About this RNA: This 146-nucleotide RNA sequence from Pseudomonas sp. URIL14HWK12:I9 belongs to the Rfam family "FMN riboswitch aptamer (RFN element)". Pairs were carried over by alignment from the consensus structure, which is taken from published work. The organism belongs to Pseudomonas, within Bacteria.
[Rfam]
RNA sequence: CAACGUUCUCAGGGCGGGGUGAGAGUCCCCACCGGCGGUAAUGGCGUACCAACGCCUAGCCCGCGAGCGCUCCCCCACGGGGAGGUCAGCAGAGCCGGUGUGAUUCCGGGGCCGACGGUUACAGUCCGGAUGAAGAGAGAACGGGA
Numbered sequence: 001c002a003a004c005g006u007u008c009u010c011a012g013g014g015c016g017g018g019g020u021g022a023g024a025g026u027c028c029c030c031a032c033c034g035g036c037g038g039u040a041a042u043g044g045c046g047u048a049c050c051a052a053c054g055c056c057u058a059g060c061c062c063g064c065g066a067g068c069g070c071u072c073c074c075c076c077a078c079g080g081g082g083a084g085g086u087c088a089g090c091a092g093a094g095c096c097g098g099u100g101u102g103a104u105u106c107c108g109g110g111g112c113c114g115a116c117g118g119u120u121a122c123a124g125u126c127c128g129g130a131u132g133a134a135g136a137g138a139g140a141a142c143g144g145g146a
Stems, first nucleotide, its partner, number of pairs: 004143007017029003031125002033114002035064004059112002067090002095109004116128003